[Rfam]
RNA: MIR319 microRNA precursor family
Organism: Glycine max
RNA sequence: CAGAAAUGGGAGUUCCUUGCAGCCCAAAGCUUCAAGGAUGAAAUUCUUCCUGCGGUUUUGGACUGAAGGGAGCUCCUACUUCUU
Numbered sequence: 001c002a003g004a005a006a007u008g009g010g011a012g013u014u015c016c017u018u019g020c021a022g023c024c025c026a027a028a029g030c031u032u033c034a035a036g037g038a039u040g041a042a043a044u045u046c047u048u049c050c051u052g053c054g055g056u057u058u059u060g061g062a063c064u065g066a067a068g069g070g071a072g073c074u075c076c077u078a079c080u081u082c083u084u
Stems, first nucleotide, its partner, number of pairs: 007078012021064002024061005